[Rfam]
RNA sequence: GAGCAGUGAAGAAGACUGCGCCAUUGUGAAGGAGGGUCUUUCACGAACGCUUACUAAAUUAAGCGAUAUGGUGCGCACAGAGCUC
Numbered sequence: 001g002a003g004c005a006g007u008g009a010a011g012a013a014g015a016c017u018g019c020g021c022c023a024u025u026g027u028g029a030a031g032g033a034g035g036g037u038c039u040u041u042c043a044c045g046a047a048c049g050c051u052u053a054c055u056a057a058a059u060u061a062a063g064c065g066a067u068a069u070g071g072u073g074c075g076c077a078c079a080g081a082g083c084u085c
Base pairs, nucleotide, nucleotide: 001085002084003083004082
Shown here is an 85-nucleotide RNA sequence from Acer yangbiense, a member of the family "small nucleolar RNA snoR114". It scores 48 bits against the family's covariance model. Lineage of the source: Eukaryota > Tracheophyta > Mesangiospermae > rosids > Acer. The base pairs follow the family's consensus structure, which was predicted with RNAalifold.